[Rfam]
RNA sequence: ACCUCUUCUCCAGGUGAGUGAGACACGUAUUGAAAGUUUAUGGCUCAAACAAUUAGUAACCAUUAUUGCUACCACAAAUUUUCUACUAAUUGCUUGAUUAUGUAGACGUACUAUACGUGUCGCUCUCACCUGGAGUAGUGUUGC
Numbered sequence: 001a002c003c004u005c006u007u008c009u010c011c012a013g014g015u016g017a018g019u020g021a022g023a024c025a026c027g028u029a030u031u032g033a034a035a036g037u038u039u040a041u042g043g044c045u046c047a048a049a050c051a052a053u054u055a056g057u058a059a060c061c062a063u064u065a066u067u068g069c070u071a072c073c074a075c076a077a078a079u080u081u082u083c084u085a086c087u088a089a090u091u092g093c094u095u096g097a098u099u100a101u102g103u104a105g106a107c108g109u110a111c112u113a114u115a116c117g118u119g120u121c122g123c124u125c126u127c128a129c130c131u132g133g134a135g136u137a138g139u140g141u142u143g144c
Stems, first nucleotide, its partner, number of pairs: 003140001005138002009134010020123001023120002026117005032111001034109001036107004
Dot-bracket structure: ..(.((..((((((((((.(..((.(((((.(.(.((((................................................................)))).).).))))).))..).))))))))))..)).)....
Rfam assigns this 144-nucleotide sequence from Abrus precatorius to the family "MIR4416 microRNA precursor family".